A member of the RNA family "mir-2 microRNA precursor family" from Tetranychus urticae, 79 nucleotides long. The match comes from Rfam's covariance-model search (64 bits). Pairs were carried over by alignment from the consensus structure, which was predicted with PFOLD.
RNA sequence: UGGGUCGUCAAAGAGGCUGUGAAAUGUAAAUAUUGUUUUGCUUAAUAACUCAUAUCACAGCCAGCUUUGAUGAUUUUGG
Numbered sequence: 001u002g003g004g005u006c007g008u009c010a011a012a013g014a015g016g017c018u019g020u021g022a023a024a025u026g027u028a029a030a031u032a033u034u035g036u037u038u039u040g041c042u043u044a045a046u047a048a049c050u051c052a053u054a055u056c057a058c059a060g061c062c063a064g065c066u067u068u069g070a071u072g073a074u075u076u077u078g079g
Stems, first nucleotide, its partner, number of pairs: 005073009015062008025054003

Gene Ontology terms of the family: RISC complex and miRNA-mediated post-transcriptional gene silencing. Taxonomically the source falls in Tetranychus (Eukaryota, Arachnida, Acariformes, Tetranychoidea).